[Rfam]
RNA sequence: CGUUGAGAGGACGAUAAAUUUUGACGGAAAUUAGUACGUGUCGAACGAAAAAAUUCAGACUACAAUUAUCUGAUCGACG
Numbered sequence: 001c002g003u004u005g006a007g008a009g010g011a012c013g014a015u016a017a018a019u020u021u022u023g024a025c026g027g028a029a030a031u032u033a034g035u036a037c038g039u040g041u042c043g044a045a046c047g048a049a050a051a052a053a054u055u056c057a058g059a060c061u062a063c064a065a066u067u068a069u070c071u072g073a074u075c076g077a078c079g
Base pairs, nucleotide, nucleotide: 001079002078003077004076005075006074
This 79-nucleotide RNA from Rhynchospora breviuscula belongs to the Rfam family "Small nucleolar RNA Z155". Pairs were carried over by alignment from the consensus structure. Lineage of the source: Eukaryota > Embryophyta > Mesangiospermae > Cyperaceae > Rhynchospora. The match comes from Rfam's covariance-model search (65 bits). It is annotated as a C/D-box small nucleolar RNA.